[Rfam]
RNA sequence: AGAUUUACCUGGCAGGGGAGAUACCAUGAUCAAGAGGGUGGUUCACCCAGGGCGAGGCUCAGCCAUUGCACUUUGGCUGUGCUAAACACCUGCGAAUUCCCCAAACGUGGGAAUCUCGACUGCAUCAUUUCUGGUAGUGGGGGACUGGGUUCGCACUCUCCCCUG
Numbered sequence: 001a002g003a004u005u006u007a008c009c010u011g012g013c014a015g016g017g018g019a020g021a022u023a024c025c026a027u028g029a030u031c032a033a034g035a036g037g038g039u040g041g042u043u044c045a046c047c048c049a050g051g052g053c054g055a056g057g058c059u060c061a062g063c064c065a066u067u068g069c070a071c072u073u074u075g076g077c078u079g080u081g082c083u084a085a086a087c088a089c090c091u092g093c094g095a096a097u098u099c100c101c102c103a104a105a106c107g108u109g110g111g112a113a114u115c116u117c118g119a120c121u122g123c124a125u126c127a128u129u130u131c132u133g134g135u136a137g138u139g140g141g142g143g144a145c146u147g148g149g150u151u152c153g154c155a156c157u158c159u160c161c162c163c164u165g
Stems, first nucleotide, its partner, number of pairs: 012123004016048003020044002023042005049091003052087001056083003060079005093118003096114003100110002139164006147156001149154001
The record is a 165-nucleotide sequence from Denticeps clupeoides, which matches "U1 spliceosomal RNA" in Rfam. Rfam classes the family as a spliceosomal small nuclear RNA. The family's consensus secondary structure is taken from published work.